The record is an 84-nucleotide sequence from Drosophila pseudoobscura, which matches "mir-2558 microRNA precursor family" in Rfam. The family's consensus secondary structure was predicted with RNAalifold.
RNA sequence: UAUGGUUAGGUAGGUACCCAAAUAUCUUGAUUAUAAUUUUCCUUUAGGAACUUACACAGAUAUUUCUGUACCUACAGGAAUUGU
Numbered sequence: 001u002a003u004g005g006u007u008a009g010g011u012a013g014g015u016a017c018c019c020a021a022a023u024a025u026c027u028u029g030a031u032u033a034u035a036a037u038u039u040u041c042c043u044u045u046a047g048g049a050a051c052u053u054a055c056a057c058a059g060a061u062a063u064u065u066c067u068g069u070a071c072c073u074a075c076a077g078g079a080a081u082u083g084u
Stems, first nucleotide, its partner, number of pairs: 010075008020065008039050004